Rfam assigns this 169-nucleotide RNA from Clostridium saccharoperbutylacetonicum to the family "Lysine riboswitch aptamer". A search with the family's covariance model found it, with a score of 98 bits. The organism belongs to Clostridium saccharoperbutylacetonicum N1-4, within Bacteria. Rfam links the family to the GO term lysine biosynthetic process.
RNA sequence: ACCUGGGGUAGAGGAGCUGUAAUAAAGAGUAAGUAUAAGGAGCUUGCAAGCUAAGAUUUAUACUAAAAGGUAUUAUGGCCGAAGGAAUAAAUUAUAAUGCAUUAAUUUAUUUCUGGGUAUUCAUAGAAUAUGUGGAUAACUGUCACGUAAGUGUUGAGCUACACGGUAC
Dot-bracket structure: .....(.((((....(((((((((.......((((((((.................))))))))......)))))))))...((((((((((((........))))))))))))((.((((((((.....)))))))).))..(((....))).....)))).).....
Numbered sequence: 001a002c003c004u005g006g007g008g009u010a011g012a013g014g015a016g017c018u019g020u021a022a023u024a025a026a027g028a029g030u031a032a033g034u035a036u037a038a039g040g041a042g043c044u045u046g047c048a049a050g051c052u053a054a055g056a057u058u059u060a061u062a063c064u065a066a067a068a069g070g071u072a073u074u075a076u077g078g079c080c081g082a083a084g085g086a087a088u089a090a091a092u093u094a095u096a097a098u099g100c101a102u103u104a105a106u107u108u109a110u111u112u113c114u115g116g117g118u119a120u121u122c123a124u125a126g127a128a129u130a131u132g133u134g135g136a137u138a139a140c141u142g143u144c145a146c147g148u149a150a151g152u153g154u155u156g157a158g159c160u161a162c163a164c165g166g167u168a169c
Stems, first nucleotide, its partner, number of pairs: 006164001008162004016079009032064008083114012115141002118138008144153003